RNA sequence: UCUGUUGUUUAUGCCCCACGAUAACGUAGGCAGAAAAACCUAUCGUUACGCGUUGGUCGUGAUUGAUA
Numbered sequence: 001u002c003u004g005u006u007g008u009u010u011a012u013g014c015c016c017c018a019c020g021a022u023a024a025c026g027u028a029g030g031c032a033g034a035a036a037a038a039c040c041u042a043u044c045g046u047u048a049c050g051c052g053u054u055g056g057u058c059g060u061g062a063u064u065g066a067u068a
Stems, first nucleotide, its partner, number of pairs: 009062005015056002018053003022048005027042004

Description
This 68-nucleotide RNA from Nematostella vectensis belongs to the Rfam family "mir-9460 microRNA precursor family". The base pairs follow the family's consensus structure, which was predicted with RNAalifold. It is one of the family's seed sequences. Its family is annotated with RISC complex and miRNA-mediated post-transcriptional gene silencing in the Gene Ontology.